PreQ1 (pre queuosine) riboswitch aptamer: a 49-nucleotide sequence from Sporolactobacillus laevolacticus. NCBI's taxonomy places the organism under Bacteria, Bacillota, Bacilli, Sporolactobacillaceae, Sporolactobacillus laevolacticus. Rfam 15.1 lists 873 matches to the family in 692 species. The literature on the family includes a 2011 paper in J Biol Chem by Jenkins et al., "Comparison of a preQ1 riboswitch aptamer in metabolite-bound and free states with implications for gene regulation". From the family's description: This family is a bacterial riboswitch that binds to the metabolite preQ1, an intermediate in the biosynthesis of the modified nucleoside queuosine from GTP. One example of this riboswitch is located in the leader of the Bacillus subtilis ykvJKLM (queCDEF) operon which encodes four genes necessary for queuosine production. PreQ1 binding to the riboswitch aptamer is thought to induce premature transcription termination within the leader to down-regulate expression of these genes. It scores 41 bits against the family's covariance model.
[Rfam]
RNA sequence: GCUUACGUGGUUCGAAACCAUCCCACGUUUAUCAAAAAACUAAGGAGGA
Numbered sequence: 001g002c003u004u005a006c007g008u009g010g011u012u013c014g015a016a017a018c019c020a021u022c023c024c025a026c027g028u029u030u031a032u033c034a035a036a037a038a039a040c041u042a043a044g045g046a047g048g049a
Stems, first nucleotide, its partner, number of pairs: 006027005016041001